[Rfam]
RNA: 6S / SsrS RNA
Organism: Mesobacillus foraminis
RNA sequence: CAGAAGCUGCGUUGUGCGUAAUCAUAAUAAAGUUUUAACCUUUAAGCUGUAAAAGGGAGUUUUAAUUGAAACCGGAAUGACAAGCCUCUGUCUAUAUGACAAGGAGGACAUGCAGGAACGUUUCUGCGAACACCCACUUUGAGGAGUGGUGGUUUAAAACUUUCUUAUAUUAAAUUACGGCAAUGCGGCUGUACA
Numbered sequence: 001c002a003g004a005a006g007c008u009g010c011g012u013u014g015u016g017c018g019u020a021a022u023c024a025u026a027a028u029a030a031a032g033u034u035u036u037a038a039c040c041u042u043u044a045a046g047c048u049g050u051a052a053a054a055g056g057g058a059g060u061u062u063u064a065a066u067u068g069a070a071a072c073c074g075g076a077a078u079g080a081c082a083a084g085c086c087u088c089u090g091u092c093u094a095u096a097u098g099a100c101a102a103g104g105a106g107g108a109c110a111u112g113c114a115g116g117a118a119c120g121u122u123u124c125u126g127c128g129a130a131c132a133c134c135c136a137c138u139u140u141g142a143g144g145a146g147u148g149g150u151g152g153u154u155u156a157a158a159a160c161u162u163u164c165u166u167a168u169a170u171u172a173a174a175u176u177a178c179g180g181c182a183a184u185g186c187g188g189c190u191g192u193a194c195a
Stems, first nucleotide, its partner, number of pairs: 003192001005190011017179003031161004036156003039152002055135003059131004068124005079113001085107005